[Rfam]
RNA sequence: ACUCGGGCACGAUCCUUACGCGCACAGUUAAUCUUUGCCAGUGCAGCACUACGCAGCGAUACGCAUAGUGUGCGGGCGAAUUUCAUAUUGUGCGGAGAGAGGGAACCGACCCGUAGUUCAACCCUGAGGGA
Numbered sequence: 001a002c003u004c005g006g007g008c009a010c011g012a013u014c015c016u017u018a019c020g021c022g023c024a025c026a027g028u029u030a031a032u033c034u035u036u037g038c039c040a041g042u043g044c045a046g047c048a049c050u051a052c053g054c055a056g057c058g059a060u061a062c063g064c065a066u067a068g069u070g071u072g073c074g075g076g077c078g079a080a081u082u083u084c085a086u087a088u089u090g091u092g093c094g095g096a097g098a099g100a101g102g103g104a105a106c107c108g109a110c111c112c113g114u115a116g117u118u119c120a121a122c123c124c125u126g127a128g129g130g131a
Stems, first nucleotide, its partner, number of pairs: 001117003004113004013104005021094008
Rfam assigns this 131-nucleotide sequence from Corynebacterium minutissimum to the family "L31-Corynebacteriaceae ribosomal protein leader".
Rfam classes the family as a cis-regulatory leader.